[Rfam]
RNA: MIR3454 microRNA precursor family
Organism: Ectocarpus sp. CCAP 1310/34
RNA sequence: CGUGGCGUUCUACCCAGCUCGGGUGGAAUGCCGGUCGUGGCUAGCUUGGCCGCCUUGUAUCACACGAGCGUGUGUAUACCCGUGCGACCCAAGGCGGCGGAACUAGCCACGAGCGCCCUUCCGUCGGAGCUAGGCAGAAUUUCACGA
Numbered sequence: 001c002g003u004g005g006c007g008u009u010c011u012a013c014c015c016a017g018c019u020c021g022g023g024u025g026g027a028a029u030g031c032c033g034g035u036c037g038u039g040g041c042u043a044g045c046u047u048g049g050c051c052g053c054c055u056u057g058u059a060u061c062a063c064a065c066g067a068g069c070g071u072g073u074g075u076a077u078a079c080c081c082g083u084g085c086g087a088c089c090c091a092a093g094g095c096g097g098c099g100g101a102a103c104u105a106g107c108c109a110c111g112a113g114c115g116c117c118c119u120u121c122c123g124u125c126g127g128a129g130c131u132a133g134g135c136a137g138a139a140u141u142u143c144a145c146g147a
Base pairs, nucleotide, nucleotide: 001146002145004143005142007140008139009138010137011136013134014133016131017130018129019128020127022125023124025122026121027120028119030117032115033114035112036111037110038109039108040107041106042105043104044103046101047100049098050097051096052095053094054093055092056091057090060087061086063084064083065082066081